[Rfam]
RNA: Small nucleolar RNA ACA64
Organism: Nannospalax galili
RNA sequence: GUUCAUUGAAAAAUCACCCCUGGUCUUGGUCGUGGCCUGGGUUGAGAUUCAGCACCCAGAGCCACAAAGAGACUCAGUUCACUCUGGCUGCCAUGGUGUGGGAGGGUGAAACCUAGGCCGAAACAAGG
Number, nucleotide and partner (000 for none) at each position: 001g000002u000003u000004c000005a000006u052007u051008g050009a049010a048011a000012a000013a000014u045015c044016a043017c000018c000019c000020c000021u000022g037023g036024u035025c034026u000027u000028g000029g000030u000031c000032g000033u000034g025035g024036c023037c022038u000039g000040g000041g000042u000043u016044g015045a014046g000047a000048u010049u009050c008051a007052g006053c000054a000055c000056c000057c000058a000059g000060a000061g000062c000063c000064a000065c000066a000067a000068a000069g000070a000071g118072a000073c116074u115075c000076a000077g000078u000079u109080c108081a107082c106083u105084c000085u000086g000087g099088c098089u000090g000091c000092c000093a000094u000095g000096g000097u000098g088099u087100g000101g000102g000103a000104g000105g083106g082107u081108g080109a079110a000111a000112c000113c000114u000115a074116g073117g000118c071119c000120g000121a000122a000123a000124c000125a000126a000127g000128g000